[Rfam]
Nucleotides: 504
Stems, first nucleotide, its partner, number of pairs: 006390003009384001013380001016327001018325001020322002023319002025316002032313004037308002049301004054233002058229001060227004065111001068108001075103001077102001082097005119220001122217002127212001129210002131206001133204003138199001140197001143196001154189002158185003161178002165174001236294002240290006249283001251281001253279002256277003260271003329342004351379004356374002361371003391431002394428004399423002403418001405416001407415001437476004443470003448464002451461002477503002480500001482498001484496003488492001
Number, partner (000 for none) and nucleotide at each position: 001000u002000u003000c004000g005000c006390g007389g008388u009384g010000u011000a012000c013380u014000c015000c016327c017000a018325g019000a020322u021321c022000c023319c024318g025316u026315c027000c028000g029000a030000g031000g032313u033312g034311g035310u036000g037308a038307g039000g040000a041000c042000g043000c044000u045000c046000u047000c048000g049301c050300c051299g052298a053000a054233g055232u056000a057000g058229u059000c060227g061226c062225c063224g064000u065111u066000c067000a068108g069000g070000a071000g072000c073000g074000u075103g076000c077102c078000c079000a080000g081000c082097a083096c084095g085094g086093u087000c088000u089000g090000g091000u092000c093086g094085c095084c096083g097082u098000a099000g100000g101000c102077g103075c104000c105000g106000a107000c108068c109000c110000c111065g112000g113000c114000c115000u116000u117000c118000g119220u120000g121000a122217u123216c124000u125000u126000g127212c128000c129210g130209u131206g132000c133204g134203c135202g136000a137000u138199g139000a140197g141000g142000a143196a144000c145000a146000c147000c148000u149000g150000g151000u152000c153000g154189g155188c156000g157000c158185g159184g160183c161178u162177g163000c164000c165174g166000a167000a168000u169000u170000c171000g172000g173000c174165c175000a176000g177162c178161a179000c180000g181000u182000c183160g184159c185158c186000c187000g188155g189154c190000u191000g192000g193000u194000a195000u196143u197140c198000g199138c200000g201000c202135u203134g204133c205000u206131c207000g208000a209130a210129c211000c212127g213000g214000c215000u216123g217122g218000c219000g220119a221000g222000c223000u224063c225062g226061g227060c228000c229058a230000g231000c232055g233054c234000c235000g236294c237293c238000u239000c240290g241289u242288c243287g244286u245285c246000g247000a248000a249283u250000c251281c252000g253279c254278g255000c256277a257276g258275c259000g260271g261270c262269g263000c264000g265000a266000g267000c268000u269262c270261g271260c272000c273000g274000a275258g276257c277256u278254c279253g280000g281251g282000c283249g284000g285245g286244a287243u288242g289241a290240c291000c292000c293237g294236g295000a296000u297000c298052u299051c300050g301049g302000a303000u304000c305000c306000g307038c308037u309000g310035g311034u312033c313032a314000c315026g316025a317000a318024c319023g320000u321021g322020a323000c324000c325018c326000g327016g328000c329342c330341g331340u332339c333000g334000c335000c336000g337000a338000c339332g340331g341330u342329g343000u344000a345000g346000g347000a348000c349000a350000g351379c352378c353377g354376c355000c356374g357373g358000u359000u360000g361371a362370c363369g364000c365000g366000g367000u368000a369363c370362g371361u372000g373357c374356c375000c376354g377353c378352g379351g380013a381000c382000a383000c384009c385000u386000c387000g388008a389007c390006c391431c392430a393000c394428g395427g396426c397425a398000g399423u400422g401000c402000c403418u404000u405416c406000a407415g408000c409000a410000g411000c412000c413000a414000c415407c416405g417000u418403g419000u420000g421000c422400u423399g424000a425397u426396g427395c428394c429000c430392u431391g432000c433000a434000u435000c436000u437476g438475c439474g440473g441000c442000a443470c444469g445468g446000a447000c448464u449463u450000c451461g452460u453000g454000g455000u456000c457000g458000u459000g460452g461451c462000c463449a464448g465000c466000u467000g468445c469444c470443g471000c472000g473440c474439c475438g476437c477503c478502g479000c480500g481000c482498g483000g484496c485495c486494u487000a488492g489000g490000c491000u492488c493000a494486a495485g496484g497000g498482u499000u500480c501000c502478u503477g504000g

Rfam assigns this 504-nucleotide RNA sequence from Amycolatopsis sp. M39 to the family "Saccharopolyspora sRNA 350". A reference for the family is Liu et al. (2013), "Prediction and characterization of small non-coding RNAs related to secondary metabolites in Saccharopolyspora erythraea", PLoS One. The match comes from Rfam's covariance-model search (159 bits). Taxonomically the source falls in Amycolatopsis (Bacteria, Bacillati, Actinomycetota, Pseudonocardiales). The family's RNA type in Rfam is antisense RNA.